[Rfam]
A member of the RNA family "ZMP/ZTP riboswitch aptamer (pfl RNA motif)" from Herbaspirillum sp. SJZ107, 102 nucleotides long. Taxonomically the source falls in Herbaspirillum (Bacteria, Pseudomonadati, Betaproteobacteria, Burkholderiales).
RNA sequence: CACUUCUCACGUAACUGGCGAAAACCGUGCGAUCGCGCGGCGAAGGUGGGCGUCCACCGGGGAACGUGAGAUGCCGUCUUGCCGUUCGCCUGGGCAGCCAUC
Dot-bracket structure: ..(.((((((((..(([[[[[........................((((....))))..))..)))))))).).....(((((..]]]]]..))))).....